[Rfam]
RNA sequence: ACUGCUUUUUCUUGAUAUAUUCAAGAAGCCCGUUAUCUCGCUAAUUUUAGCAUUAUAGGUAACGGGUUUUUCUUU
Numbered sequence: 001a002c003u004g005c006u007u008u009u010u011c012u013u014g015a016u017a018u019a020u021u022c023a024a025g026a027a028g029c030c031c032g033u034u035a036u037c038u039c040g041c042u043a044a045u046u047u048u049a050g051c052a053u054u055a056u057a058g059g060u061a062a063c064g065g066g067u068u069u070u071u072c073u074u075u
Stems, first nucleotide, its partner, number of pairs: 027068012